[Rfam]
RNA sequence: GCCAAAUGAUGCUUAUGUGAUACAGGAGCACAUCAGUGCAAGGACGACUUUUAUCUAUCACCCAUGACUGAUGGUU
Numbered sequence: 001g002c003c004a005a006a007u008g009a010u011g012c013u014u015a016u017g018u019g020a021u022a023c024a025g026g027a028g029c030a031c032a033u034c035a036g037u038g039c040a041a042g043g044a045c046g047a048c049u050u051u052u053a054u055c056u057a058u059c060a061c062c063c064a065u066g067a068c069u070g071a072u073g074g075u076u
Base pairs, nucleotide, nucleotide: 001075002074003073004072028039029038030037031036